[Rfam]
RNA sequence: ACACGAGAAAGGAGGUGGUCCGACUCAUGAUUUCUUAUCGGACGCGUGAGGUGGUUGCGCGCUAGCGCACCCUUCGGUCCGCCGUAGUGGCAGACCGUGGACGUGCGGGAGCGAAUCCAUCGCCGCCGCCGCAGCCCGUGGGAGCGUGCAUCGUCCAGCACGCACCGGCCAUCAGGCCGGAACCCAUGGGCUGUUCCAU
Numbered sequence: 001a002c003a004c005g006a007g008a009a010a011g012g013a014g015g016u017g018g019u020c021c022g023a024c025u026c027a028u029g030a031u032u033u034c035u036u037a038u039c040g041g042a043c044g045c046g047u048g049a050g051g052u053g054g055u056u057g058c059g060c061g062c063u064a065g066c067g068c069a070c071c072c073u074u075c076g077g078u079c080c081g082c083c084g085u086a087g088u089g090g091c092a093g094a095c096c097g098u099g100g101a102c103g104u105g106c107g108g109g110a111g112c113g114a115a116u117c118c119a120u121c122g123c124c125g126c127c128g129c130c131g132c133a134g135c136c137c138g139u140g141g142g143a144g145c146g147u148g149c150a151u152c153g154u155c156c157a158g159c160a161c162g163c164a165c166c167g168g169c170c171a172u173c174a175g176g177c178c179g180g181a182a183c184c185c186a187u188g189g190g191c192u193g194u195u196c197c198a199u
Stems, first nucleotide, its partner, number of pairs: 015058005060113004066107005073100002132193011144163006

Rfam assigns this 199-nucleotide RNA from Yimella sp. RIT 621 to the family "Actinobacteria sRNA Ms_IGR-5". It is annotated as a small RNA. Pairs were carried over by alignment from the consensus structure.